[Rfam]
RNA sequence: CGAGUUGGCCGGGCGGCCGCGGGCCACGGGGCGACCCGGGGUUCGAGGAAAGUCCGGACUUCACAGAGCAGGGUGAUUGCUAACGGCAAUCCGGGGCAACCCGCGGGAAAGUGCCACAGAAAACAGACCGCCGCCCGCAAGGGCGGUAAGGGUGAAACGGUGCGGUAAGAGCGCACCAGCAUCCCGGGUGACCGGGAUGGCUAGGCAAACCCCACCCGAAGCAAGGCCAAGAAGGCCGCAACCUGGUUGCGGUCGCGCGAGCGUUCGAGGGCUGCUCGCCCGAGCUUGCGGGUAGGCCGCUUGAGGCACCCGGCGACGGUGUGUCCAGAUGGAUGGUCGCCUAUCGGUCCUCCGUCAGGAGGCCGGUACAGAAUCCGGCUUACAGGCCAGCUCGUCCG
Numbered sequence: 001c002g003a004g005u006u007g008g009c010c011g012g013g014c015g016g017c018c019g020c021g022g023g024c025c026a027c028g029g030g031g032c033g034a035c036c037c038g039g040g041g042u043u044c045g046a047g048g049a050a051a052g053u054c055c056g057g058a059c060u061u062c063a064c065a066g067a068g069c070a071g072g073g074u075g076a077u078u079g080c081u082a083a084c085g086g087c088a089a090u091c092c093g094g095g096g097c098a099a100c101c102c103g104c105g106g107g108a109a110a111g112u113g114c115c116a117c118a119g120a121a122a123a124c125a126g127a128c129c130g131c132c133g134c135c136c137g138c139a140a141g142g143g144c145g146g147u148a149a150g151g152g153u154g155a156a157a158c159g160g161u162g163c164g165g166u167a168a169g170a171g172c173g174c175a176c177c178a179g180c181a182u183c184c185c186g187g188g189u190g191a192c193c194g195g196g197a198u199g200g201c202u203a204g205g206c207a208a209a210c211c212c213c214a215c216c217c218g219a220a221g222c223a224a225g226g227c228c229a230a231g232a233a234g235g236c237c238g239c240a241a242c243c244u245g246g247u248u249g250c251g252g253u254c255g256c257g258c259g260a261g262c263g264u265u266c267g268a269g270g271g272c273u274g275c276u277c278g279c280c281c282g283a284g285c286u287u288g289c290g291g292g293u294a295g296g297c298c299g300c301u302u303g304a305g306g307c308a309c310c311c312g313g314c315g316a317c318g319g320u321g322u323g324u325c326c327a328g329a330u331g332g333a334u335g336g337u338c339g340c341c342u343a344u345c346g347g348u349c350c351u352c353c354g355u356c357a358g359g360a361g362g363c364c365g366g367u368a369c370a371g372a373a374u375c376c377g378g379c380u381u382a383c384a385g386g387c388c389a390g391c392u393c394g395u396c397c398g
Stems, first nucleotide, its partner, number of pairs: 001394010011383001012341007020045006027038002050381003054378005059221004066277004071217005076090005091105001092103004106212002111210002113206003128151002130147007159177006179201001180199008225298004269281004305325005310319003
RNA: Bacterial RNase P class A
Organism: Mycolicibacterium neoaurum